Overview:
Rfam assigns this 146-nucleotide RNA sequence from Miscanthus lutarioriparius to the family "MIR6234 microRNA precursor family".

RNA sequence: CACAUUUCCGUAUGCAAGUGUGUUCCUCUAUUUGAUGCUAAAGGAGGACGCGCUAGUUGAAACACUUCACAAGUGUCGAUGUUACCUUCGGUAGUAUUCUUACCUUUAGAGUAAAGAGAUGAACGCACUUGCCCCACCAGCAUUAC
Numbered sequence: 001c002a003c004a005u006u007u008c009c010g011u012a013u014g015c016a017a018g019u020g021u022g023u024u025c026c027u028c029u030a031u032u033u034g035a036u037g038c039u040a041a042a043g044g045a046g047g048a049c050g051c052g053c054u055a056g057u058u059g060a061a062a063c064a065c066u067u068c069a070c071a072a073g074u075g076u077c078g079a080u081g082u083u084a085c086c087u088u089c090g091g092u093a094g095u096a097u098u099c100u101u102a103c104c105u106u107u108a109g110a111g112u113a114a115a116g117a118g119a120u121g122a123a124c125g126c127a128c129u130u131g132c133c134c135c136a137c138c139a140g141c142a143u144u145a146c
Stems, first nucleotide, its partner, number of pairs: 004143002007140001010137001014132012027119003031116003035112002038109007046099003050095002054091001056089001059085001061083004065078001068075002
NCBI's taxonomy places the organism under Eukaryota, Spermatophyta, Liliopsida, commelinids, Miscanthus.